[Rfam]
Nucleotides: 055
Stems, first nucleotide, its partner, number of pairs: 002013003025047010
Number, partner (000 for none) and nucleotide at each position: 001000u002013g003012g004011u005000a006000g007000a008000u009000g010000c011004a012003c013002c014000c015000u016000g017000a018000c019000a020000u021000u022000a023000g024000a025047g026046c027045u028044c029043u030042u031041g032040g033039c034038c035000u036000c037000c038034g039033g040032c041031u042030a043029g044028g045027a046026g047025c048000u049000u050000u051000u052000a053000u054000u055000u
The record is a 55-nucleotide RNA from Romeriopsis navalis, which matches "Nitrogen stress-induced RNA 1" in Rfam. The source organism's lineage runs through Bacteria, Bacillati, Leptolyngbyaceae, Romeriopsis and Romeriopsis navalis. The family's RNA type in Rfam is small RNA. The pairing is the family consensus, mapped onto this sequence. A reference for the family is Ionescu et al. (2010), "Heterocyst-specific transcription of NsiR1, a non-coding RNA encoded in a tandem array of direct repeats in cyanobacteria", J Mol Biol.